[Rfam]
RNA sequence: UCCUUUUUGCGUAAACUGCCGAAGACAGUAGGUGCCGUAAGGCGUAAGGUGAAACCGCCUACCGAGGAAAAGUUGGUUUGAAAUCAUUUUAUGAUAACGGAACCUCUUUCUGCUUUGGCAGGAAGAGGUUUUUUGAUAGUCUU
Numbered sequence: 001u002c003c004u005u006u007u008u009g010c011g012u013a014a015a016c017u018g019c020c021g022a023a024g025a026c027a028g029u030a031g032g033u034g035c036c037g038u039a040a041g042g043c044g045u046a047a048g049g050u051g052a053a054a055c056c057g058c059c060u061a062c063c064g065a066g067g068a069a070a071a072g073u074u075g076g077u078u079u080g081a082a083a084u085c086a087u088u089u090u091a092u093g094a095u096a097a098c099g100g101a102a103c104c105u106c107u108u109u110c111u112g113c114u115u116u117g118g119c120a121g122g123a124a125g126a127g128g129u130u131u132u133u134u135g136a137u138a139g140u141c142u143u
Stems, first nucleotide, its partner, number of pairs: 028062006034043003103128010